[Rfam]
RNA: U2 spliceosomal RNA
Organism: Pongo abelii
RNA sequence: CUCCAUUCUCAGCCUUUUGGGUAAGAUCAAAUGUAGUAUCUCUUCUUAUCAGUUUAAUAUCUGAUAUGUCCUCUAUUCGAGGACACAAUCUAUAUUAAAUAGAUUUUUGGAACUAAGAGAUGGAAUAGGAGCUUGCCCCACCCACUCCACACAUUUACCUACCAUUGCAGUACCUCCAGGAACAGUGUACCCCUA
Dot-bracket structure: ......(((.(.((....)).).)))....................((((((........)))))).((((((.....))))))................................(((..((....((.(....).)).))..)))...(((((..(((.................)))...))))).......